Rfam assigns this 336-nucleotide part of an RNA from Ramalina farinacea to the family "Eukaryotic small subunit ribosomal RNA". The source organism's lineage runs through Eukaryota, Opisthokonta, Ascomycota, Ramalinaceae and Ramalina. The family's consensus secondary structure is taken from published work. Its family is annotated with ribosome and structural constituent of ribosome in the Gene Ontology.
RNA sequence: GUUAGGGGAUCGAAGACGAUUGGCCAUCUGGUCGUCCACAGUAAACGCAUCUAGUAUGGGGUCACUGCCCCUGCAACAUCAGCAAACUGUAGGGCUCCCGCAGCGAUGUGGGUGACCUACAGCCAAGCUCCUCCGGGGGCGCAGUCUACAGACUGAAUGUUGGUGGGCGGGCCUUGCGGGGUCCGUUUCUAAUAUAGUCGAGUCCUCUGUAUCACCACCAGGGGUUCUCACGCAGAUACCGUCGUAGUCUUAACCAUAAACUAUGCCGACUAGGGAUCGGACGGUGUUAUUAUUUUGACCCGUUCGGCACCUUACGAGAAAUCAAAGUUUUUGGGU
Numbered sequence: 001g002u003u004a005g006g007g008g009a010u011c012g013a014a015g016a017c018g019a020u021u022g023g024c025c026a027u028c029u030g031g032u033c034g035u036c037c038a039c040a041g042u043a044a045a046c047g048c049a050u051c052u053a054g055u056a057u058g059g060g061g062u063c064a065c066u067g068c069c070c071c072u073g074c075a076a077c078a079u080c081a082g083c084a085a086a087c088u089g090u091a092g093g094g095c096u097c098c099c100g101c102a103g104c105g106a107u108g109u110g111g112g113u114g115a116c117c118u119a120c121a122g123c124c125a126a127g128c129u130c131c132u133c134c135g136g137g138g139g140c141g142c143a144g145u146c147u148a149c150a151g152a153c154u155g156a157a158u159g160u161u162g163g164u165g166g167g168c169g170g171g172c173c174u175u176g177c178g179g180g181g182u183c184c185g186u187u188u189c190u191a192a193u194a195u196a197g198u199c200g201a202g203u204c205c206u207c208u209g210u211a212u213c214a215c216c217a218c219c220a221g222g223g224g225u226u227c228u229c230a231c232g233c234a235g236a237u238a239c240c241g242u243c244g245u246a247g248u249c250u251u252a253a254c255c256a257u258a259a260a261c262u263a264u265g266c267c268g269a270c271u272a273g274g275g276a277u278c279g280g281a282c283g284g285u286g287u288u289a290u291u292a293u294u295u296u297g298a299c300c301c302g303u304u305c306g307g308c309a310c311c312u313u314a315c316g317a318g319a320a321a322u323c324a325a326a327g328u329u330u331u332u333g334g335g336u
Base pairs, nucleotide, nucleotide: 001254002253003252004251005250006249011247015243016242017241018240265336266335267334268329269328270327272312273311274310277307278306279305280304281303282302283301284300286299287298288297316323317322